[Rfam]
RNA sequence: GACGACCGGCCGGACAUGUUUGCCCGGCCCACAAGUGGAGGCUCCGAUCUCCCACCCGACCAUCCUCAGGGACGGCGGGUCAUCCGGUCAGGCGGCCCCCAUCGUUCCGUACGGACGAUGGAGUCGCCCGAAUUUGCGCCCCGCGAUAUCGCGGCGGUGCUCCGGUAGUGCUUGGAGCCCCGCAUGUGAUCGUCCGGGGCAUUUUUU
Number, nucleotide and partner (000 for none) at each position: 001g000002a000003c000004g089005a088006c087007c086008g085009g084010c000011c000012g025013g024014a000015c000016a000017u000018g000019u000020u000021u000022g000023c000024c013025c012026g081027g080028c079029c078030c077031a000032c058033a000034a000035g055036u054037g053038g052039a050040g049041g000042c000043u000044c000045c000046g000047a000048u000049c040050u039051c000052c038053c037054a036055c035056c000057c000058g032059a000060c075061c074062a000063u072064c071065c070066u000067c000068a000069g000070g065071g064072a063073c000074g061075g060076c000077g030078g029079g028080u027081c026082a000083u000084c009085c008086g007087g006088u005089c004090a000091g128092g127093c126094g000095g125096c000097c000098c000099c121100c120101a119102u118103c117104g116105u115106u114107c000108c000109g000110u000111a000112c000113g000114g106115a105116c104117g103118a102119u101120g100121g099122a000123g000124u000125c095126g093127c092128c091129c000130g000131a000132a000133u000134u000135u000136g000137c000138g200139c199140c198141c197142c196143g195144c192145g191146a190147u000148a000149u000150c188151g187152c186153g000154g183155c182156g181157g180158u000159g178160c177161u176162c175163c174164g000165g000166u000167a000168g000169u000170g000171c000172u000173u000174g163175g162176a161177g160178c159179c000180c157181c156182g155183c154184a000185u000186g152187u151188g150189a000190u146191c145192g144193u000194c000195c143196g142197g141198g140199g139200c138201a000202u000203u000204u000205u000206u000207u000